[Rfam]
RNA sequence: GGUCACUGCGUUCAUUUGGUGCGUAGAGUAUGAUUUAUCUUUUCUAGCACCAUGUGAAUUCAGUUCAUC
Numbered sequence: 001g002g003u004c005a006c007u008g009c010g011u012u013c014a015u016u017u018g019g020u021g022c023g024u025a026g027a028g029u030a031u032g033a034u035u036u037a038u039c040u041u042u043u044c045u046a047g048c049a050c051c052a053u054g055u056g057a058a059u060u061c062a063g064u065u066c067a068u069c
Stems, first nucleotide, its partner, number of pairs: 001069003005064004010059005017052005024046004
RNA: mir-29 microRNA precursor family
Organism: Dinothrombium tinctorium